Shown here is a 600-nucleotide part of an RNA from Heliothis virescens, a member of the family "Eukaryotic small subunit ribosomal RNA". On this family, see Yusupov et al., Science 2001: "Crystal structure of the ribosome at 5.5 A resolution". It scores 967 bits against the family's covariance model. Its family is annotated with ribosome and structural constituent of ribosome in the Gene Ontology.
RNA sequence: AUAUUGCUUUGUCUCAAAGAUUAAGCAUGCAUGUCUCAGUGCAACCGUAUUAAGGCGAUACGCGAAUUGGCUCAAUAUAUUCAGUUUUGGUCCUUAGAUCUUACUCAGUUACUGAUAACUGUGGUAAUUCUUAGAGCUAAUACAUGCCAAUCAGAACUUCGACCAGUGAUGGCUAUGAGUGCUUUAUUAGAUUCAAACAAUCGACGGGAGCGGCCUCGCGUGCCGAAUCGUUAAUUUUGAUAAUCUGAGAUAACUUUUGCCGCGCAUGCGCUCCAGUUACCGCGACGCAUCUUUCAAAGUCUGCCUAUCAACUUUCGAUGGUAUUCUGCACUACCCAUGGUUGUCACGGGUACUAACGGGGAAUCAGGGUUCGAUUCCAGGAGAGGGAGCCUAGAAGGGGCUACCACCAUCCAAGGAAGGCAGCAGGCGCGCAAAUUACCCACUCCCGGCACGCGGGAGGUGUGACGAAAAAAUAACGAUACGGGACUUUACGAGCGCCUCGUAAAUCGGAAUGAUACCACUUUAAAUAUUUUAACGAGAAACAAUGGAGGCAAGUUCUGUGCCAGCAGCCGCGGUAAUUCCAGCUCCAAUAUUGCGUAU
Numbered sequence: 001a002u003a004u005u006g007c008u009u010u011g012u013c014u015c016a017a018a019g020a021u022u023a024a025g026c027a028u029g030c031a032u033g034u035c036u037c038a039g040u041g042c043a044a045c046c047g048u049a050u051u052a053a054g055g056c057g058a059u060a061c062g063c064g065a066a067u068u069g070g071c072u073c074a075a076u077a078u079a080u081u082c083a084g085u086u087u088u089g090g091u092c093c094u095u096a097g098a099u100c101u102u103a104c105u106c107a108g109u110u111a112c113u114g115a116u117a118a119c120u121g122u123g124g125u126a127a128u129u130c131u132u133a134g135a136g137c138u139a140a141u142a143c144a145u146g147c148c149a150a151u152c153a154g155a156a157c158u159u160c161g162a163c164c165a166g167u168g169a170u171g172g173c174u175a176u177g178a179g180u181g182c183u184u185u186a187u188u189a190g191a192u193u194c195a196a197a198c199a200a201u202c203g204a205c206g207g208g209a210g211c212g213g214c215c216u217c218g219c220g221u222g223c224c225g226a227a228u229c230g231u232u233a234a235u236u237u238u239g240a241u242a243a244u245c246u247g248a249g250a251u252a253a254c255u256u257u258u259g260c261c262g263c264g265c266a267u268g269c270g271c272u273c274c275a276g277u278u279a280c281c282g283c284g285a286c287g288c289a290u291c292u293u294u295c296a297a298a299g300u301c302u303g304c305c306u307a308u309c310a311a312c313u314u315u316c317g318a319u320g321g322u323a324u325u326c327u328g329c330a331c332u333a334c335c336c337a338u339g340g341u342u343g344u345c346a347c348g349g350g351u352a353c354u355a356a357c358g359g360g361g362a363a364u365c366a367g368g369g370u371u372c373g374a375u376u377c378c379a380g381g382a383g384a385g386g387g388a389g390c391c392u393a394g395a396a397g398g399g400g401c402u403a404c405c406a407c408c409a410u411c412c413a414a415g416g417a418a419g420g421c422a423g424c425a426g427g428c429g430c431g432c433a434a435a436u437u438a439c440c441c442a443c444u445c446c447c448g449g450c451a452c453g454c455g456g457g458a459g460g461u462g463u464g465a466c467g468a469a470a471a472a473a474u475a476a477c478g479a480u481a482c483g484g485g486a487c488u489u490u491a492c493g494a495g496c497g498c499c500u501c502g503u504a505a506a507u508c509g510g511a512a513u514g515a516u517a518c519c520a521c522u523u524u525a526a527a528u529a530u531u532u533u534a535a536c537g538a539g540a541a542a543c544a545a546u547g548g549a550g551g552c553a554a555g556u557u558c559u560g561u562g563c564c565a566g567c568a569g570c571c572g573c574g575g576u577a578a579u580u581c582c583a584g585c586u587c588c589a590a591u592a593u594u595g596c597g598u599a600u
Stems, first nucleotide, its partner, number of pairs: 001600004006596002009592001012470001014468002018463001019430001025428002028425003033063002039061002046055001071383003082303003087298002091296001096292004112146001119136002122133002124130001157172001185252003188248001193240004222231002263284003268280001270278001304350003311341003318338004322333002325330001357380001358378003361372004385405002388402003408419001410417002436462001438461003444457003447453002477509003480504006487497001489495001520532001546589005557584001560581001566573002